[Rfam]
RNA sequence: GCCAGAAUGUCAGCGAUUACGGUCGCAGGCAGCGUGCAUUAGUAAAUUCAGUAACCCACCAGUACACGUAAAUGGUGCGCAAAUGCCCCAUGGCAAUGCGUCGUGGCUGGUUAUGGUAUUCCAAUCUGUUGGGUGGUUAUCAGUCUUUGCUUCGCAUUUCCUUUAUGGGCUUGCAAACAGGGGCUGUUCCCAUGCUUCAUUUAAUGAGUGGUUACUACACUU
Numbered sequence: 001g002c003c004a005g006a007a008u009g010u011c012a013g014c015g016a017u018u019a020c021g022g023u024c025g026c027a028g029g030c031a032g033c034g035u036g037c038a039u040u041a042g043u044a045a046a047u048u049c050a051g052u053a054a055c056c057c058a059c060c061a062g063u064a065c066a067c068g069u070a071a072a073u074g075g076u077g078c079g080c081a082a083a084u085g086c087c088c089c090a091u092g093g094c095a096a097u098g099c100g101u102c103g104u105g106g107c108u109g110g111u112u113a114u115g116g117u118a119u120u121c122c123a124a125u126c127u128g129u130u131g132g133g134u135g136g137u138u139a140u141c142a143g144u145c146u147u148u149g150c151u152u153c154g155c156a157u158u159u160c161c162u163u164u165a166u167g168g169g170c171u172u173g174c175a176a177a178c179a180g181g182g183g184c185u186g187u188u189c190c191c192a193u194g195c196u197u198c199a200u201u202u203a204a205u206g207a208g209u210g211g212u213u214a215c216u217a218c219a220c221u222u
Base pairs, nucleotide, nucleotide: 001037002036008031009030010029011028013026014025015024016023050216051215052214053213054212055211056210058111059110060109061108062107063106065105066104078100079099080098081097084095085094086093087092127199128198131195133193134192135191136190141186142185143184144183145182146181147180148179149178
About this RNA:
The family of this 222-nucleotide RNA is "RT-7 RNA". The family's RNA type in Rfam is small RNA.